Plastid-psbN 5UTR RNA: a 61-nucleotide RNA from Phtheirospermum japonicum. About the family: Plastid psbN is a non-coding RNA (ncRNA) recognised in plastids. It was reported as a conserved 11 stem-loop in the prime untranslated region (5UTR) of psbN genes. Pairs were carried over by alignment from the consensus structure, which was predicted with LocARNA.
RNA sequence: AAUAAUACCCAUCAGAGGAGUCGUUCCCCACCCAAGAGCUACUUUACCAUAAUCCAAAUUC
Numbered sequence: 001a002a003u004a005a006u007a008c009c010c011a012u013c014a015g016a017g018g019a020g021u022c023g024u025u026c027c028c029c030a031c032c033c034a035a036g037a038g039c040u041a042c043u044u045u046a047c048c049a050u051a052a053u054c055c056a057a058a059u060u061c
Stems, first nucleotide, its partner, number of pairs: 017045005023039004